[Rfam]
RNA: Small nucleolar RNA snoR136
Organism: Olea europaea
RNA sequence: UUAAUUCUACUUCAUCAAUUUUGGAUCUACACUGUAAAUCUUUUUAUCACGAUGUGGUAUUUUCAAAUGAACCUUAAAAGGAAUUGUUCCUCUCGCUAUCCAUUGCUACCUCCGUGGAGUAUUUGGACGUUGGAGAACAACAUUU
Numbered sequence: 001u002u003a004a005u006u007c008u009a010c011u012u013c014a015u016c017a018a019u020u021u022u023g024g025a026u027c028u029a030c031a032c033u034g035u036a037a038a039u040c041u042u043u044u045u046a047u048c049a050c051g052a053u054g055u056g057g058u059a060u061u062u063u064c065a066a067a068u069g070a071a072c073c074u075u076a077a078a079a080g081g082a083a084u085u086g087u088u089c090c091u092c093u094c095g096c097u098a099u100c101c102a103u104u105g106c107u108a109c110c111u112c113c114g115u116g117g118a119g120u121a122u123u124u125g126g127a128c129g130u131u132g133g134a135g136a137a138c139a140a141c142a143u144u145u
Stems, first nucleotide, its partner, number of pairs: 001077002003074001008069002011066002018062001021059001032057004038053003086138004091133002094129002099127004106117003